[Rfam]
RNA sequence: GACGGAGCACACAAGGCGUUGUGGGCAACGACAACGGGGCAACCCGUCAGUAGGAACCACACCGAGCCGGUGUUGCGUCGUACGUUUUGAAAAACGA
Numbered sequence: 001g002a003c004g005g006a007g008c009a010c011a012c013a014a015g016g017c018g019u020u021g022u023g024g025g026c027a028a029c030g031a032c033a034a035c036g037g038g039g040c041a042a043c044c045c046g047u048c049a050g051u052a053g054g055a056a057c058c059a060c061a062c063c064g065a066g067c068c069g070g071u072g073u074u075g076c077g078u079c080g081u082a083c084g085u086u087u088u089g090a091a092a093a094a095c096g097a
Stems, first nucleotide, its partner, number of pairs: 001079004006074005015068002020061005029053001034047005083096003
This 97-nucleotide part of an RNA from uncultured archaeon A07HR60 belongs to the Rfam family "Archaeal large subunit ribosomal RNA". The match comes from Rfam's covariance-model search (2720 bits). The family's consensus secondary structure is taken from published work.